The record is a 201-nucleotide RNA sequence from Enterocloster lavalensis, which matches "glmS glucosamine-6-phosphate activated ribozyme aptamer" in Rfam.

[Rfam]
RNA sequence: UAGCAUAGCUAAGCGCCAAGCACCUUUUUCCGGGACCGUGAACAGUCUGAGGCUUCAAACGCCCUGCGCUGCCGGAGAGAAGGUUAACGAGGUGGAGAGAGAAUCGAAGUUUUCGGCGGGUGCUCUCCCAUGCCGUCCGGGCGUGUAAUGCGCAGUGAAAUAUGCGGGUAACCGCAAAACAAACGCGGCGCAACCGGACGC
Numbered sequence: 001u002a003g004c005a006u007a008g009c010u011a012a013g014c015g016c017c018a019a020g021c022a023c024c025u026u027u028u029u030c031c032g033g034g035a036c037c038g039u040g041a042a043c044a045g046u047c048u049g050a051g052g053c054u055u056c057a058a059a060c061g062c063c064c065u066g067c068g069c070u071g072c073c074g075g076a077g078a079g080a081a082g083g084u085u086a087a088c089g090a091g092g093u094g095g096a097g098a099g100a101g102a103a104u105c106g107a108a109g110u111u112u113u114c115g116g117c118g119g120g121u122g123c124u125c126u127c128c129c130a131u132g133c134c135g136u137c138c139g140g141g142c143g144u145g146u147a148a149u150g151c152g153c154a155g156u157g158a159a160a161u162a163u164g165c166g167g168g169u170a171a172c173c174g175c176a177a178a179a180c181a182a183a184c185g186c187g188g189c190g191c192a193a194c195c196g197g198a199c200g201c
Base pairs, nucleotide, nucleotide: 022084023083024082025081026080027079028078094128095127096126097125098124104116105115106114107113129145130144131143132142133141134140150191151190152189153188155186163176164175165174166173167172
Notes
Lineage of the source: Bacteria > Bacillota > Clostridia > Lachnospirales > Enterocloster.